Description
A member of the RNA family "mir-17 microRNA precursor family" from Pogona vitticeps, 80 nucleotides long. Rfam describes the family as follows. This family represents the microRNA (miRNA) precursor mir-17, family, which includes mir-20, mir-91, and mir-103. miRNAs are transcribed as ~70nt precursors (modelled here) and subsequently processed by the Dicer enzyme to give a ~22nt product. Gene Ontology terms of the family: miRNA-mediated post-transcriptional gene silencing and RISC complex. The organism belongs to Pogona, within Eukaryota. Pairs were carried over by alignment from the consensus structure, which was predicted with RNAalifold. It scores 69 bits against the family's covariance model.
RNA sequence: CUAGCAGUGUCAAAGUGCUCAUAGUGCAGGUAGGUGUACACCUGAAUCUACUGUAAUGUGGGCACUUACAGUACUGCUGG
Numbered sequence: 001c002u003a004g005c006a007g008u009g010u011c012a013a014a015g016u017g018c019u020c021a022u023a024g025u026g027c028a029g030g031u032a033g034g035u036g037u038a039c040a041c042c043u044g045a046a047u048c049u050a051c052u053g054u055a056a057u058g059u060g061g062g063c064a065c066u067u068a069c070a071g072u073a074c075u076g077c078u079g080g
Stems, first nucleotide, its partner, number of pairs: 004077004009072002013067011025055003029052005